This 114-nucleotide RNA from Paraburkholderia phenazinium belongs to the Rfam family "Glycine riboswitch aptamer". The source organism's lineage runs through Bacteria, Pseudomonadati, Pseudomonadota, Betaproteobacteria and Paraburkholderia. Pairs were carried over by alignment from the consensus structure.
RNA sequence: GCGGGAACAUCUGGAGAGCGGCGCUUAACGCGCCCACCGAAGGGGAUUUCCGCCCGCCCGGCAACGGGAUGCGCGCGGAAAGAAACUCUCAGGUACAUGGACAGAUGGGGCAUG
Dot-bracket structure: .......((((((......((((.......)))).(((((..(((...(...............................)....))))).))).......)))))).......